[Rfam]
RNA sequence: UUACCAGUCAGUCUCUGGCUAUACUCCAAGACACAGUUGGUCCUGGGUAUAACCAAAGACCAACUCCAUA
Numbered sequence: 001u002u003a004c005c006a007g008u009c010a011g012u013c014u015c016u017g018g019c020u021a022u023a024c025u026c027c028a029a030g031a032c033a034c035a036g037u038u039g040g041u042c043c044u045g046g047g048u049a050u051a052a053c054c055a056a057a058g059a060c061c062a063a064c065u066c067c068a069u070a
Stems, first nucleotide, its partner, number of pairs: 007064002011060004016055003020051004026040004

Rfam assigns this 70-nucleotide RNA from Peromyscus maniculatus to the family "mir-344 microRNA precursor family". It scores 56 bits against the family's covariance model. Its family is annotated with RISC complex and miRNA-mediated post-transcriptional gene silencing in the Gene Ontology. The literature on the family includes a 2010 paper in BMC Genomics by Linsen et al., "Small RNA expression and strain specificity in the rat". The family has 18 seed sequences and 339 matches in Rfam 15.1. The base pairs follow the family's consensus structure, which was predicted with RNAalifold.